[Rfam]
RNA sequence: UUAUAUCGAAUACGCAUACCGUAGACAGUAGGUGCCCAUGCCGGGCUUAAUUUCCUACCGAGGUGUUAUGAUAAAAUGUUGAUGAAUACAGCAGGCUUGCCUGCAAAGUCAUCUUAACGACAUCAUGGCCUUCGCAGUUCUGCGAGGGCCUUUCUCAUGCAUCGA
Numbered sequence: 001u002u003a004u005a006u007c008g009a010a011u012a013c014g015c016a017u018a019c020c021g022u023a024g025a026c027a028g029u030a031g032g033u034g035c036c037c038a039u040g041c042c043g044g045g046c047u048u049a050a051u052u053u054c055c056u057a058c059c060g061a062g063g064u065g066u067u068a069u070g071a072u073a074a075a076a077u078g079u080u081g082a083u084g085a086a087u088a089c090a091g092c093a094g095g096c097u098u099g100c101c102u103g104c105a106a107a108g109u110c111a112u113c114u115u116a117a118c119g120a121c122a123u124c125a126u127g128g129c130c131u132u133c134g135c136a137g138u139u140c141u142g143c144g145a146g147g148g149c150c151u152u153u154c155u156c157a158u159g160c161a162u163c164g165a
Stems, first nucleotide, its partner, number of pairs: 028058005034046003127150010